The family of this 125-nucleotide RNA from Vibrio cholerae is "Vibrio RNA AS5". For this family Rfam cites "Experimental discovery of sRNAs in Vibrio cholerae by direct cloning, 5S/tRNA depletion and parallel sequencing" (Liu et al., Nucleic Acids Res, 2009). About the family: Identified by direct cloning an parallel sequencing experiments with 5S/tRNA depletion. Confirmed by Northern blot. The family's consensus secondary structure was predicted with RNAfold. The organism belongs to Vibrio cholerae O1 biovar El Tor, within Bacteria.
[Rfam]
RNA sequence: CGAUACCCAAACGACUUGGAGUUGCAGGUAGGCGGCAAGCGAGUGAAUCCCCAUGAGCAUAGACAAACUAUGUGAUUGGGGUGAAUGAACGCAGCCAACACCGCUGCAACUUCAAGUAGGAAGGG
Numbered sequence: 001c002g003a004u005a006c007c008c009a010a011a012c013g014a015c016u017u018g019g020a021g022u023u024g025c026a027g028g029u030a031g032g033c034g035g036c037a038a039g040c041g042a043g044u045g046a047a048u049c050c051c052c053a054u055g056a057g058c059a060u061a062g063a064c065a066a067a068c069u070a071u072g073u074g075a076u077u078g079g080g081g082u083g084a085a086u087g088a089a090c091g092c093a094g095c096c097a098a099c100a101c102c103g104c105u106g107c108a109a110c111u112u113c114a115a116g117u118a119g120g121a122a123g124g125g
Stems, first nucleotide, its partner, number of pairs: 004122001006120002014117013027102003032092003036083002040079001042077003